Record summary:
The record is a 180-nucleotide RNA sequence from Zea mays, which matches "Small nucleolar RNA Z112" in Rfam. By type it is a C/D-box small nucleolar RNA. A reference for the family is Liang et al. (2002), "A novel gene organization: intronic snoRNA gene clusters from Oryza sativa", Nucleic Acids Res. Clan: SNORD49 clan. The organism belongs to Zea, within Eukaryota. Gene Ontology terms of the family: nucleolus and RNA processing.
[Rfam]
RNA sequence: GUUCCAAUGAUGAUUUAAAGACGUAGCAAUAGGAAGUGUCGUUUGUCACUGUAAACAACAGCUGCUUCUUUCUUCUUCAUGUGUCUAUCUCUCGAUCAUAACCAAUUUGGUCUAGGAUACAACACCAUCUGUAGUUGUUGGAUUCAGCUGUAGUGUGAUUUAAAUCGUAUCUAUGCAAAU
Numbered sequence: 001g002u003u004c005c006a007a008u009g010a011u012g013a014u015u016u017a018a019a020g021a022c023g024u025a026g027c028a029a030u031a032g033g034a035a036g037u038g039u040c041g042u043u044u045g046u047c048a049c050u051g052u053a054a055a056c057a058a059c060a061g062c063u064g065c066u067u068c069u070u071u072c073u074u075c076u077u078c079a080u081g082u083g084u085c086u087a088u089c090u091c092u093c094g095a096u097c098a099u100a101a102c103c104a105a106u107u108u109g110g111u112c113u114a115g116g117a118u119a120c121a122a123c124a125c126c127a128u129c130u131g132u133a134g135u136u137g138u139u140g141g142a143u144u145c146a147g148c149u150g151u152a153g154u155g156u157g158a159u160u161u162a163a164a165u166c167g168u169a170u171c172u173a174u175g176c177a178a179a180u
Stems, first nucleotide, its partner, number of pairs: 001180003075134002078131002081128003084121001086119005094112005100107002